Shown here is a 108-nucleotide sequence from Capsicum annuum, a member of the family "Small nucleolar RNA snoR97".
Rfam 15.1 lists 862 matches to the family in 223 species.
The family's consensus secondary structure was predicted with WAR.
The literature on the family includes a 2002 paper in Curr Biol by Marker et al., "Experimental RNomics: identification of 140 candidates for small non-messenger RNAs in the plant Arabidopsis thaliana".

RNA sequence: UUUUCAUCUCUAGGUUAAGCAAAUUAAAGCGCAUAAAUUGUGUGCGGUCCAUCACCUCCUAUCUUGCAUAUUUCAAUGAGAUUGGAGUUAAAUAUCAGCACUACAUGU
Numbered sequence: 001u002u003u004u005c006a007u008c009u010c011u012a013g014g015u016u017a018a019g020c021a022a023a024u025u026a027a028a029g030c031g032c033a034u035a036a037a038u039u040g041u042g043u044g045c046g047g048u049c050c051a052u053c054a055c056c057u058c059c060u061a062u063c064u065u066g067c068a069u070a071u072u073u074c075a076a077u078g079a080g081a082u083u084g085g086a087g088u089u090a091a092a093u094a095u096c097a098g099c100a101c102u103a104c105a106u107g108u
Stems, first nucleotide, its partner, number of pairs: 042101004047096001054089001056087004062081004